[Rfam]
RNA sequence: GGAGUCGGCCGGGCGGCCGCGUCGGGCCCCACGAGGGCCCGUCGAGGAAAGUCCGGACUCCACAGGGCAGGGUGGUUGCCAACAGCAACCCGGGGUGACCCGCGGGACAGUGCCACAGAGAACAGACCGCCACCGGCGCGAGCCGGUGGUGAGGGUGAAACGGUGGUGUAAGAGACCACCAGCGUCCUGGGUGACCAGGACGGCUCGGUAAACCCCACCCGGAGCAAGGUCAAGAAGGUUCCGCCGGAGACGGCGGAGCUGCGCAGGUCGUCCGAGGGCUGCCCGCCCGAGACCUGCGGGUAGACCGCUGGAGCCCGUCGGCGACGGCGGGCCGAGAUGGAUGGUCGCCGCCCGCGGACCCGCGAGGGACCGUGGGCACAGGAUCCGGCUUACAGGCCGACUCCUCCG
Numbered sequence: 001g002g003a004g005u006c007g008g009c010c011g012g013g014c015g016g017c018c019g020c021g022u023c024g025g026g027c028c029c030c031a032c033g034a035g036g037g038c039c040c041g042u043c044g045a046g047g048a049a050a051g052u053c054c055g056g057a058c059u060c061c062a063c064a065g066g067g068c069a070g071g072g073u074g075g076u077u078g079c080c081a082a083c084a085g086c087a088a089c090c091c092g093g094g095g096u097g098a099c100c101c102g103c104g105g106g107a108c109a110g111u112g113c114c115a116c117a118g119a120g121a122a123c124a125g126a127c128c129g130c131c132a133c134c135g136g137c138g139c140g141a142g143c144c145g146g147u148g149g150u151g152a153g154g155g156u157g158a159a160a161c162g163g164u165g166g167u168g169u170a171a172g173a174g175a176c177c178a179c180c181a182g183c184g185u186c187c188u189g190g191g192u193g194a195c196c197a198g199g200a201c202g203g204c205u206c207g208g209u210a211a212a213c214c215c216c217a218c219c220c221g222g223a224g225c226a227a228g229g230u231c232a233a234g235a236a237g238g239u240u241c242c243g244c245c246g247g248a249g250a251c252g253g254c255g256g257a258g259c260u261g262c263g264c265a266g267g268u269c270g271u272c273c274g275a276g277g278g279c280u281g282c283c284c285g286c287c288c289g290a291g292a293c294c295u296g297c298g299g300g301u302a303g304a305c306c307g308c309u310g311g312a313g314c315c316c317g318u319c320g321g322c323g324a325c326g327g328c329g330g331g332c333c334g335a336g337a338u339g340g341a342u343g344g345u346c347g348c349c350g351c352c353c354g355c356g357g358a359c360c361c362g363c364g365a366g367g368g369a370c371c372g373u374g375g376g377c378a379c380a381g382g383a384u385c386c387g388g389c390u391u392a393c394a395g396g397c398c399g400a401c402u403c404c405u406c407c408g
Stems, first nucleotide, its partner, number of pairs: 001404010011393001012349007020044002023041006049391003053388005058224004065284004070220005075089005090104001091102004105215002110213002112209003127154002129150009162180006182204001183202008228306004234297001236295004276288004313332008
Bacterial RNase P class A: a 408-nucleotide sequence from Actinomycetospora sp. TBRC 11914. The base pairs follow the family's consensus structure, which is taken from published work. The organism belongs to Actinomycetospora, within Bacteria. A search with the family's covariance model found it, with a score of 273 bits. It is annotated as a ribozyme. Its family is annotated with tRNA processing, dimeric ribonuclease P complex and ribonuclease P activity in the Gene Ontology.